[Rfam]
The family of this 175-nucleotide RNA sequence from Clostridium bornimense is "Lysine riboswitch aptamer". Riboswitches are metabolite binding domains within certain messenger RNAs that serve as precision sensors for their corresponding targets. Taxonomically the source falls in Clostridium (Bacteria, Bacillati, Bacillota, Clostridiaceae). Pairs were carried over by alignment from the consensus structure, which is taken from published work.
Nucleotides: 175
Stems, first nucleotide, its partner, number of pairs: 006170006016078009033062006082113003086109006114140007122132003142160007
Number, partner (000 for none) and nucleotide at each position: 001000u002000u003000c004000c005000g006170u007169g008168a009167u010166a011165g012000a013000g014000g015000c016078g017077c018076g019075a020074u021073a022072a023071u024070u025000a026000a027000g028000a029000g030000u031000a032000u033062u034061u035060a036059g037058a038057u039000g040000g041000a042000c043000u044000u045000a046000a047000g048000c049000a050000g051000g052000a053000u054000g055000a056000a057038g058037u059036u060035u061034a062033a063000c064000g065000a066000a067000a068000g069000g070024a071023a072022u073021u074020g075019u076018c077017g078016c079000c080000g081000a082113a083112g084111u085000u086109u087108a088107g089106u090105a091104u092000u093000a094000a095000u096000g097000c098000u099000u100000u101000a102000a103000u104091a105090u106089a107088c108087u109086a110000u111084g112083c113082u114140g115139g116138u117137u118136u119135u120134g121000c122132a123131g124130a125000u126000a127000a128000u129000a130124u131123c132122u133000u134120u135119a136118a137117g138116a139115c140114u141000g142160u143159c144158a145157u146156a147155a148154a149000g150000g151000a152000a153000u154148u155147u156146u157145a158144u159143g160142g161000a162000g163000a164000g165011c166010u167009a168008u169007c170006a171000c172000u173000c174000g175000c